[Rfam]
RNA sequence: GGUCAAGUUCCAUGCGGCUUCGCCUAUCCCAACUCCGCCAGGUUCGGAAGAAAGCAACGGUCAGAUAGCGUGAAGUGCGCGUGGCAAGCUUGGCCGUU
Numbered sequence: 001g002g003u004c005a006a007g008u009u010c011c012a013u014g015c016g017g018c019u020u021c022g023c024c025u026a027u028c029c030c031a032a033c034u035c036c037g038c039c040a041g042g043u044u045c046g047g048a049a050g051a052a053a054g055c056a057a058c059g060g061u062c063a064g065a066u067a068g069c070g071u072g073a074a075g076u077g078c079g080c081g082u083g084g085c086a087a088g089c090u091u092g093g094c095c096g097u098u
Stems, first nucleotide, its partner, number of pairs: 004092005010084005015077001017076006024068005035060003043052003
Annotation: The record is a 98-nucleotide sequence from bacterium HR20, which matches "Bacterial small signal recognition particle RNA" in Rfam. The base pairs follow the family's consensus structure, which is taken from published work. A reference for the family is Righetti et al. (2016), "Temperature-responsive in vitro RNA structurome of Yersinia pseudotuberculosis", Proc Natl Acad Sci U S A.